[Rfam]
RNA sequence: GUAUUCUUGCGCCCAUGAACCGCAAACUGUCCGCCCUCCGACGUCGCCGCUCGCUCCCCUCACGGGAAGCCGUCGGCUCAUAGCGGAUGCGCGCCUCGCAACCUACCAGCUAGUCAAGCGAGCGCGCGAAAUCGGUCAAACCGCGAAAGCCACGGAGUUCCGUGGCUUUUUU
Numbered sequence: 001g002u003a004u005u006c007u008u009g010c011g012c013c014c015a016u017g018a019a020c021c022g023c024a025a026a027c028u029g030u031c032c033g034c035c036c037u038c039c040g041a042c043g044u045c046g047c048c049g050c051u052c053g054c055u056c057c058c059c060u061c062a063c064g065g066g067a068a069g070c071c072g073u074c075g076g077c078u079c080a081u082a083g084c085g086g087a088u089g090c091g092c093g094c095c096u097c098g099c100a101a102c103c104u105a106c107c108a109g110c111u112a113g114u115c116a117a118g119c120g121a122g123c124g125c126g127c128g129a130a131a132u133c134g135g136u137c138a139a140a141c142c143g144c145g146a147a148a149g150c151c152a153c154g155g156a157g158u159u160c161c162g163u164g165g166c167u168u169u170u171u172u
Base pairs, nucleotide, nucleotide: 007139008138011094012093014091020089031086032085033084040079041078043077044076045075046073047072049070050069054065146169147168148167149166150165151164152163153162154161155160

Annotation: Shown here is a 172-nucleotide RNA sequence from Trinickia dinghuensis, a member of the family "Burkholderia sRNA 7". By type it is a small RNA. Rfam describes the family as follows. Did not show any change in expression in iron-depletion and hydrogen peroxide (oxidative stress) treatment. Constitutively expressed. The match comes from Rfam's covariance-model search (93 bits).